[Rfam]
RNA sequence: UGAAGUAAACGGGGGUGUCGGUCAGAACCGGCUGAGAUAGGAACUGUGCGUUCCGGACCCUAUGAAACCUGAUUUGGAUCAUGCCAACGUAGGGAGUGAGCUUUAUUUAACG
Numbered sequence: 001u002g003a004a005g006u007a008a009a010c011g012g013g014g015g016u017g018u019c020g021g022u023c024a025g026a027a028c029c030g031g032c033u034g035a036g037a038u039a040g041g042a043a044c045u046g047u048g049c050g051u052u053c054c055g056g057a058c059c060c061u062a063u064g065a066a067a068c069c070u071g072a073u074u075u076g077g078a079u080c081a082u083g084c085c086a087a088c089g090u091a092g093g094g095a096g097u098g099a100g101c102u103u104u105a106u107u108u109a110a111c112g
Base pairs, nucleotide, nucleotide: 006100009097010096011061012060013059014058016055017032018031019030020029021028040054041053042052043051068093069092070091071090074087075086076085077084
The family of this 112-nucleotide RNA from Oribacterium sp. C9 is "TPP riboswitch aptamer (THI element)". Pairs were carried over by alignment from the consensus structure, which is taken from published work. It scores 63 bits against the family's covariance model. Gene Ontology term of the family: thiamine pyrophosphate binding. Vitamin B(1) in its active form thiamin pyrophosphate (TPP) is an essential coenzyme that is synthesised by coupling of pyrimidine and thiazole moieties in bacteria.